This 355-nucleotide part of an RNA from Bacteriovorax stolpii belongs to the Rfam family "Bacterial small subunit ribosomal RNA".
The match comes from Rfam's covariance-model search (1586 bits).
The base pairs follow the family's consensus structure, which is taken from published work.
The literature on the family includes a 2002 paper in BMC Bioinformatics by Cannone et al., "The comparative RNA web (CRW) site: an online database of comparative sequence and structure information for ribosomal, intron, and other RNAs".
Gene Ontology terms of the family: structural constituent of ribosome and ribosome.
Lineage of the source: Bacteria > Bdellovibrionota > Bacteriovoracia > Bacteriovoracales > Bacteriovorax.

[Rfam]
RNA sequence: GGCGUAAAGCGCGCGUAGGCGGACCUGCAAGUCAGAUGUGAAAUCUCGGGGCUCAACCUCGAAACUGCGUCUGAAACUACAGGUCUAGAAUCUCGGAGGGGGAAGGGGAAUAUCGCAUGUAGGGGUAAAAUCCGUAGAUAUGCGAUGGAACACCAGAGGCGAAGGCGCCUUCCUGGACGAGUAUUGACGCUGAGGCGCGAAAGCGUGGGGAUCAAACAGGAUUAGAUACCCUGGUAGUCCACGCUGUAAACGAUGAACACUAGAUAUUGGAGGAUUUGACCCCUUCAGUGUCGUAGCUAACGCGUUAAGUGUUCCGCCUGGGAAGUACGGUCGCAAGACUAAAACUCAAAGGAAU
Numbered sequence: 001g002g003c004g005u006a007a008a009g010c011g012c013g014c015g016u017a018g019g020c021g022g023a024c025c026u027g028c029a030a031g032u033c034a035g036a037u038g039u040g041a042a043a044u045c046u047c048g049g050g051g052c053u054c055a056a057c058c059u060c061g062a063a064a065c066u067g068c069g070u071c072u073g074a075a076a077c078u079a080c081a082g083g084u085c086u087a088g089a090a091u092c093u094c095g096g097a098g099g100g101g102g103a104a105g106g107g108g109a110a111u112a113u114c115g116c117a118u119g120u121a122g123g124g125g126u127a128a129a130a131u132c133c134g135u136a137g138a139u140a141u142g143c144g145a146u147g148g149a150a151c152a153c154c155a156g157a158g159g160c161g162a163a164g165g166c167g168c169c170u171u172c173c174u175g176g177a178c179g180a181g182u183a184u185u186g187a188c189g190c191u192g193a194g195g196c197g198c199g200a201a202a203g204c205g206u207g208g209g210g211a212u213c214a215a216a217c218a219g220g221a222u223u224a225g226a227u228a229c230c231c232u233g234g235u236a237g238u239c240c241a242c243g244c245u246g247u248a249a250a251c252g253a254u255g256a257a258c259a260c261u262a263g264a265u266a267u268u269g270g271a272g273g274a275u276u277u278g279a280c281c282c283c284u285u286c287a288g289u290g291u292c293g294u295a296g297c298u299a300a301c302g303c304g305u306u307a308a309g310u311g312u313u314c315c316g317c318c319u320g321g322g323a324a325g326u327a328c329g330g331u332c333g334c335a336a337g338a339c340u341a342a343a344a345c346u347c348a349a350a351g352g353a354a355u
Stems, first nucleotide, its partner, number of pairs: 001318003009315001011198004016192001018191003022085006030078002032074009046062006089185003092181004100174007107151001111147008122133003159166002203244006213237001217233004255314006263292011296303002320347003329340004